[Rfam]
RNA sequence: GAGCAUUCAGAAGACUUGUAGUCUGGGCUACAUGCGGAGGACCUGGUUCCUCUCCUCGCCCAGGGGAAAGUCCCCGGACAUGAGGCAGAAAGUGCUCUGGGUAAAUCCAGCGUCGGUCGGAGUUCAUCGUCACCUUCAGCGGAGACGCUCAUGUGUGAGCAGAGCUGGGCGAUAUCCGGCCGACUUUGUCAGCAGCGAUAGUCAUGCAAGUGCACAACACAACGGGGCUCAUUCUCUGAAUGCC
Dot-bracket structure: ..(((((((((..((((((..(((((((........(((((......))))).....)))))))....[[.[[[[........((((.....))))(((((....)))))..(((((((((....((((.......((((......((((......))))...))))..)))).)))))))))......................))))))............]]]]]].....))))))))).
The record is a 244-nucleotide RNA from Neogobius melanostomus, which matches "RNase MRP" in Rfam. Rfam's curators write: RNase MRP is an enzymatically active ribonucleoprotein with two distinct roles in eukaryotes. Pairs were carried over by alignment from the consensus structure, which is taken from published work.